[Rfam]
RNA sequence: UCACUUCACAUUAAUUUACAGAUCGCUAUAUGGGUCCUGCCGGUUUCGACCGGCUAUGGCGAUAAAUUGCGGUGUGCAAUAGGCACAGCGGACCCGGGGGCAGUACCCGGCGGCUCCACCAAACCCCCUGUUAUCGAGGGCUUGGUAUAGGGGGCCGAACCAGGAUCGACGUGUGUUGAAAGGCACUGUUUUCGCCCGGGCUGAGUAACCCGUUAAAGGCUCAAAAACCCACAAGUGCCAACGAUAACGAAGCACUCGCUCUCGCUGCGUAAUUCUAGGGGCUAACGCCCUGACGUUACAAAGCUAAAGCGCGGUUGGACCCACCGGGCAACAGAAGGGAUUCCG
Numbered sequence: 001u002c003a004c005u006u007c008a009c010a011u012u013a014a015u016u017u018a019c020a021g022a023u024c025g026c027u028a029u030a031u032g033g034g035u036c037c038u039g040c041c042g043g044u045u046u047c048g049a050c051c052g053g054c055u056a057u058g059g060c061g062a063u064a065a066a067u068u069g070c071g072g073u074g075u076g077c078a079a080u081a082g083g084c085a086c087a088g089c090g091g092a093c094c095c096g097g098g099g100g101c102a103g104u105a106c107c108c109g110g111c112g113g114c115u116c117c118a119c120c121a122a123a124c125c126c127c128c129u130g131u132u133a134u135c136g137a138g139g140g141c142u143u144g145g146u147a148u149a150g151g152g153g154g155c156c157g158a159a160c161c162a163g164g165a166u167c168g169a170c171g172u173g174u175g176u177u178g179a180a181a182g183g184c185a186c187u188g189u190u191u192u193c194g195c196c197c198g199g200g201c202u203g204a205g206u207a208a209c210c211c212g213u214u215a216a217a218g219g220c221u222c223a224a225a226a227a228c229c230c231a232c233a234a235g236u237g238c239c240a241a242c243g244a245u246a247a248c249g250a251a252g253c254a255c256u257c258g259c260u261c262u263c264g265c266u267g268c269g270u271a272a273u274u275c276u277a278g279g280g281g282c283u284a285a286c287g288c289c290c291u292g293a294c295g296u297u298a299c300a301a302a303g304c305u306a307a308a309g310c311g312c313g314g315u316u317g318g319a320c321c322c323a324c325c326g327g328g329c330a331a332c333a334g335a336a337g338g339g340a341u342u343c344c345g
Stems, first nucleotide, its partner, number of pairs: 039054005058196005069189007084175003088172003094110005111157007197212004202223003312326004317343003321339002
Dot-bracket structure: ......................................(((((......)))))...(((((......(((((((........(((.(((...(((((.......)))))(((((((.................................)))))))............)))))).......)))))))..)))))((((.[[[....))))........]]]........................................................................................((((.[[[.[[))))...........]].]]]..